[Rfam]
About this RNA:
Plastid-psbA-4 3UTR RNA: a 60-nucleotide RNA from Barbeya oleoides. The family is grouped with related families in Rfam's "Plastid-psbA 3UTR RNA clan". By type it is a cis-regulatory element. Lineage of the source: Eukaryota > Viridiplantae > Gunneridae > rosids > Barbeya.
RNA sequence: AAUAAAGGAGCAAUAAACAAUUUCUUGUUUUAUCAAGAAGUUUGGUAUUGCUCCUUUACU
Dot-bracket structure: ...((((((((((((...((.((((((......)))))).))...))))))))))))...